[Rfam]
RNA sequence: UUUUUAGAAUAACUAUGUCCUAUGUAAUAUCUGGGAAAUAUUUAUACUAAAA
Numbered sequence: 001u002u003u004u005u006a007g008a009a010u011a012a013c014u015a016u017g018u019c020c021u022a023u024g025u026a027a028u029a030u031c032u033g034g035g036a037a038a039u040a041u042u043u044a045u046a047c048u049a050a051a052a
Stems, first nucleotide, its partner, number of pairs: 006048002009045004014040003018036004
RNA: mir-1302 microRNA precursor family